[Rfam]
RNA sequence: UUGCACUUGUAUCAUAGGGCCCACUUAUUCGUGUAGUGGGUCUUGAGCUAAGUGCAUAGAGAGAAUCUGUUCCGGCAGAGCGGCCAGACAACCGUAGAGAUGAAUCCACUGAUGAAUGGCUUAAUUUGCUGUUCAUCUACUGAUUUCAUCUCACAUUU
Numbered sequence: 001u002u003g004c005a006c007u008u009g010u011a012u013c014a015u016a017g018g019g020c021c022c023a024c025u026u027a028u029u030c031g032u033g034u035a036g037u038g039g040g041u042c043u044u045g046a047g048c049u050a051a052g053u054g055c056a057u058a059g060a061g062a063g064a065a066u067c068u069g070u071u072c073c074g075g076c077a078g079a080g081c082g083g084c085c086a087g088a089c090a091a092c093c094g095u096a097g098a099g100a101u102g103a104a105u106c107c108a109c110u111g112a113u114g115a116a117u118g119g120c121u122u123a124a125u126u127u128g129c130u131g132u133u134c135a136u137c138u139a140c141u142g143a144u145u146u147c148a149u150c151u152c153a154c155a156u157u158u
Base pairs, nucleotide, nucleotide: 002056003055004054005053006052009048013047015045016044017043018042019041020040021039022038023037024036025035097152098151099150100149101148102147103146104145114134115133116132117131118130119129
Rfam assigns this 158-nucleotide sequence from Protea cynaroides to the family "small nucleolar RNA snoR143". Pairs were carried over by alignment from the consensus structure, which was predicted with RNAalifold. Its family is annotated with RNA processing and nucleolus in the Gene Ontology. Rfam classes the family as an H/ACA-box small nucleolar RNA. The literature on the family includes a 2009 paper in Nucleic Acids Res by Chen and Wu, "Mining small RNA sequencing data: a new approach to identify small nucleolar RNAs in Arabidopsis".